[Rfam]
RNA sequence: CGACGUCGGUUCCUCCUCCCGUCUGAAGACUGACGGGAGGAUUUUACGACGUCGCAGAGAAACUCGGGUCUUUUUCACCCAGGAGGCUUCAGGCUUCGGCCGGAAUCAAAGCCGCUCCUGGUUUUGCGGGACCCAACAAAA
Numbered sequence: 001c002g003a004c005g006u007c008g009g010u011u012c013c014u015c016c017u018c019c020c021g022u023c024u025g026a027a028g029a030c031u032g033a034c035g036g037g038a039g040g041a042u043u044u045u046a047c048g049a050c051g052u053c054g055c056a057g058a059g060a061a062a063c064u065c066g067g068g069u070c071u072u073u074u075u076c077a078c079c080c081a082g083g084a085g086g087c088u089u090c091a092g093g094c095u096u097c098g099g100c101c102g103g104a105a106u107c108a109a110a111g112c113c114g115c116u117c118c119u120g121g122u123u124u125u126g127c128g129g130g131a132c133c134c135a136a137c138a139a140a141a
Base pairs, nucleotide, nucleotide: 001054002053003052004051005050006049007048008047014041015040016039017038018037020035021034022033023032067133068132069131070130071129072128079121080120081119082118083117084116085115092113093112094111095110096109
RNA: Small nucleolar RNA SNORA79